[Rfam]
TPP riboswitch aptamer (THI element): a 107-nucleotide RNA sequence from Amycolatopsis cihanbeyliensis.
The source organism's lineage runs through Bacteria, Bacillati, Actinomycetota, Actinomycetes and Amycolatopsis.
Pairs were carried over by alignment from the consensus structure, which is taken from published work.
RNA sequence: AGGUGUCCGCACGGGAGCCCGAGGGUACGGGCUGAGAGGGAGCCGCCGCUCCGACCGUGGAACCUGAUCCGGAUCAUGCCGGCGCAGGGAGCGUGAUCGUCGAUGAA
Numbered sequence: 001a002g003g004u005g006u007c008c009g010c011a012c013g014g015g016a017g018c019c020c021g022a023g024g025g026u027a028c029g030g031g032c033u034g035a036g037a038g039g040g041a042g043c044c045g046c047c048g049c050u051c052c053g054a055c056c057g058u059g060g061a062a063c064c065u066g067a068u069c070c071g072g073a074u075c076a077u078g079c080c081g082g083c084g085c086a087g088g089g090a091g092c093g094u095g096a097u098c099g100u101c102g103a104u105g106a107a
Stems, first nucleotide, its partner, number of pairs: 006095001008093003011058004017032005039052005063088004069082004